[Rfam]
RNA sequence: CUCUCGACACGGCAAAGCCUGAGCAAUCAGGUGACGCAAAGUCACGGGUCCCUCUGGGAUAGCCGGACCACCGAA
Numbered sequence: 001c002u003c004u005c006g007a008c009a010c011g012g013c014a015a016a017g018c019c020u021g022a023g024c025a026a027u028c029a030g031g032u033g034a035c036g037c038a039a040a041g042u043c044a045c046g047g048g049u050c051c052c053u054c055u056g057g058g059a060u061a062g063c064c065g066g067a068c069c070a071c072c073g074a075a
Base pairs, nucleotide, nucleotide: 012037013036017032018031019030020029021028022027041068042067043066045065046064047063048060049059050058051057052056
This 75-nucleotide RNA from Pontibacterium sinense belongs to the Rfam family "c-di-GMP-I riboswitch aptamer". Lineage of the source: Bacteria > Pseudomonadota > Oceanospirillales > Oceanospirillaceae > Pontibacterium. GEMM was predicted in a large-scale screen for bacterial structured RNA regulatory elements. The base pairs follow the family's consensus structure, which is taken from published work. It scores 56 bits against the family's covariance model.